Notes:
Shown here is a 249-nucleotide part of an RNA, a member of the family "Archaeal large subunit ribosomal RNA". The family has 91 seed sequences and 2,955 matches in Rfam 15.1. Pairs were carried over by alignment from the consensus structure, which is taken from published work. Clan: LSU clan.
RNA sequence: CGUGGUCUGAGAGGAAAGCUCGGACAGUACGAAAGGAACCCUGAGCUGAGGCCUCUGGUCUACCGGUCGUCCGAAAGGGCGGAGCCGGGUAGCUACGCCUCACGGAUGUAAGGGCUGAAAGCAUCUAAGCCCGAAAGUCUCCUCAAAAACAGACCGCGUCCGCACCUGUAGAACACAGGUUCGAUAGAGAGGCGGUGUAAGAACCAAGGCAACGAGGUUCUCAGCCGACCUCCACUAACAGCGGUUUGG
Numbered sequence: 001c002g003u004g005g006u007c008u009g010a011g012a013g014g015a016a017a018g019c020u021c022g023g024a025c026a027g028u029a030c031g032a033a034a035g036g037a038a039c040c041c042u043g044a045g046c047u048g049a050g051g052c053c054u055c056u057g058g059u060c061u062a063c064c065g066g067u068c069g070u071c072c073g074a075a076a077g078g079g080c081g082g083a084g085c086c087g088g089g090u091a092g093c094u095a096c097g098c099c100u101c102a103c104g105g106a107u108g109u110a111a112g113g114g115c116u117g118a119a120a121g122c123a124u125c126u127a128a129g130c131c132c133g134a135a136a137g138u139c140u141c142c143u144c145a146a147a148a149a150c151a152g153a154c155c156g157c158g159u160c161c162g163c164a165c166c167u168g169u170a171g172a173a174c175a176c177a178g179g180u181u182c183g184a185u186a187g188a189g190a191g192g193c194g195g196u197g198u199a200a201g202a203a204c205c206a207a208g209g210c211a212a213c214g215a216g217g218u219u220c221u222c223a224g225c226c227g228a229c230c231u232c233c234a235c236u237a238a239c240a241g242c243g244g245u246u247u248g249g
Base pairs, nucleotide, nucleotide: 001158002157003156004155005154006153007152008151011144012143013142014141017047018046019045020044021043022042023041048101049100050099051098052097056095057094058093063088064087065086066085067084068081069080070079071078072077105139106138107137112132113131114130115129116128160244161243162242163241164180165179166178167177168176185237186236187235189232190231191230192229193227194226195225201220202219203218204217205216208213